[Rfam]
The family of this 163-nucleotide sequence from Caldalkalibacillus thermarum is "glmS glucosamine-6-phosphate activated ribozyme aptamer".
Rfam classes the family as a riboswitch.
Pairs were carried over by alignment from the consensus structure, which is taken from published work.
It scores 112 bits against the family's covariance model.
The literature on the family includes a 2006 paper in Biochemistry by Hampel and Tinsley, "Evidence for preorganization of the glmS ribozyme ligand binding pocket".

RNA sequence: UUUAAACUUUAAGCGCCAGGACUAAGGAAGGACGGCUCCUUAGUUGACGAGGUGGAGGUUUAUCGAGCAAUCGGCGGAUGCCUCCCUGCUGCGGGUCACAGCAGUAAGUCAUAUACAAACCACAGGGGCAACCUUGUGUUUAAAAUUAUGACAUGACCCAUAC
Numbered sequence: 001u002u003u004a005a006a007c008u009u010u011a012a013g014c015g016c017c018a019g020g021a022c023u024a025a026g027g028a029a030g031g032a033c034g035g036c037u038c039c040u041u042a043g044u045u046g047a048c049g050a051g052g053u054g055g056a057g058g059u060u061u062a063u064c065g066a067g068c069a070a071u072c073g074g075c076g077g078a079u080g081c082c083u084c085c086c087u088g089c090u091g092c093g094g095g096u097c098a099c100a101g102c103a104g105u106a107a108g109u110c111a112u113a114u115a116c117a118a119a120c121c122a123c124a125g126g127g128g129c130a131a132c133c134u135u136g137u138g139u140u141u142a143a144a145a146u147u148a149u150g151a152c153a154u155g156a157c158c159c160a161u162a163c
Stems, first nucleotide, its partner, number of pairs: 020045008054085005063074004086104006108152006121138007